[Rfam]
RNA sequence: AAGGACAUAUAGCCGAAUCCCGCCGCCCGGCGGGAACCGGGGAACCGCACGGCCCAUGUGGCCAUCCCCUGGGGUGAAUGGGGCACAAGGACGGCGCUGUAGCGCCGCGGAGUGCGCCAAGGCCGUCUCUCAGGCCUAACCCGACAGCUAACCCGGUAGGCGACUGAGAUGAUAUGG
Numbered sequence: 001a002a003g004g005a006c007a008u009a010u011a012g013c014c015g016a017a018u019c020c021c022g023c024c025g026c027c028c029g030g031c032g033g034g035a036a037c038c039g040g041g042g043a044a045c046c047g048c049a050c051g052g053c054c055c056a057u058g059u060g061g062c063c064a065u066c067c068c069c070u071g072g073g074g075u076g077a078a079u080g081g082g083g084c085a086c087a088a089g090g091a092c093g094g095c096g097c098u099g100u101a102g103c104g105c106c107g108c109g110g111a112g113u114g115c116g117c118c119a120a121g122g123c124c125g126u127c128u129c130u131c132a133g134g135c136c137u138a139a140c141c142c143g144a145c146a147g148c149u150a151a152c153c154c155g156g157u158a159g160g161c162g163a164c165u166g167a168g169a170u171g172a173u174a175u176g177g
Stems, first nucleotide, its partner, number of pairs: 012161003018035006036157006046071002072142003080118002083115004121136004
Rfam assigns this 177-nucleotide sequence from Corynebacterium timonense to the family "c-di-AMP riboswitch aptamer (ydaO/yuaA leader)". Rfam links the family to the GO terms regulation of gene expression and cyclic-di-AMP binding. The organism belongs to Corynebacterium, within Bacteria. It scores 69 bits against the family's covariance model. Rfam's curators write: This family represents a conserved RNA structure found upstream of the ydaO and yuaA genes in Bacillus subtilis and related genes in other bacteria.